nrdJ RNA: an 85-nucleotide sequence from Streptomyces minutiscleroticus. A search with the family's covariance model found it, with a score of 66 bits.
RNA sequence: ACCUGCUGCGGCGGCCGCGCACACGGGCGCGCGCAGCACUGGACAGACACCAUGCCACGGGAAGAUCGUGGUAUUUAGGGGCGUU
Number, nucleotide and partner (000 for none) at each position: 001a000002c000003c000004u038005g037006c036007u035008g034009c033010g032011g030012c029013g028014g000015c027016c026017g000018c000019g000020c000021a000022c000023a000024c000025g000026g016027g015028c013029g012030c011031g000032c010033g009034c008035a007036g006037c005038a004039c000040u000041g000042g000043a000044c000045a000046g000047a000048c000049a000050c000051c000052a074053u073054g072055c071056c070057a069058c068059g067060g000061g000062a000063a000064g000065a000066u000067c059068g058069u057070g056071g055072u054073a053074u052075u000076u000077a000078g000079g000080g000081g000082c000083g000084u000085u000

Source information:
The source organism's lineage runs through Bacteria, Actinomycetota, Kitasatosporales, Streptomycetaceae and Streptomyces. The family's RNA type in Rfam is small RNA.